[Rfam]
RNA sequence: GGGGUGCGCAAUAGGCUUACCUCCACGUGGUGCACCCUGGGCAACGUAUACUUAUACGGCAAAAGGGCUAUU
Numbered sequence: 001g002g003g004g005u006g007c008g009c010a011a012u013a014g015g016c017u018u019a020c021c022u023c024c025a026c027g028u029g030g031u032g033c034a035c036c037c038u039g040g041g042c043a044a045c046g047u048a049u050a051c052u053u054a055u056a057c058g059g060c061a062a063a064a065g066g067g068c069u070a071u072u
Stems, first nucleotide, its partner, number of pairs: 001038007019031003045058005